Record summary
This 74-nucleotide RNA from Nannospalax galili belongs to the Rfam family "U1A polyadenylation inhibition element (PIE)".
RNA sequence: UAACACAGCAUUGUACUGAGAGUCUGUUCCCAGACAUUGUACCUGGCACUUUUAGGCCGCAAUUAAAGUGGGUU
Numbered sequence: 001u002a003a004c005a006c007a008g009c010a011u012u013g014u015a016c017u018g019a020g021a022g023u024c025u026g027u028u029c030c031c032a033g034a035c036a037u038u039g040u041a042c043c044u045g046g047c048a049c050u051u052u053u054a055g056g057c058c059g060c061a062a063u064u065a066a067a068g069u070g071g072g073u074u
Stems, first nucleotide, its partner, number of pairs: 005052001007050002017046001019044002022035005
The family has 39 seed sequences and 510 matches in Rfam 15.1.
From the family's description: This family represents the U1A polyadenylation inhibition element (PIE). PIE is a regulatory RNA which is responsible for the regulation of the length of the polyA tail of the U1A pre-mRNA. The PIE is located in the U1A mRNA 3' UTR. PIE adopts a U-shaped structure, with binding sites for a single U1A protein at each bend and when complexed with the two proteins it blocks activity of poly(A) polymerase (PAP), and inhibits its activity.
The match comes from Rfam's covariance-model search (66 bits).
It is annotated as a cis-regulatory element.
NCBI's taxonomy places the organism under Eukaryota, Opisthokonta, Metazoa, Vertebrata, Nannospalax.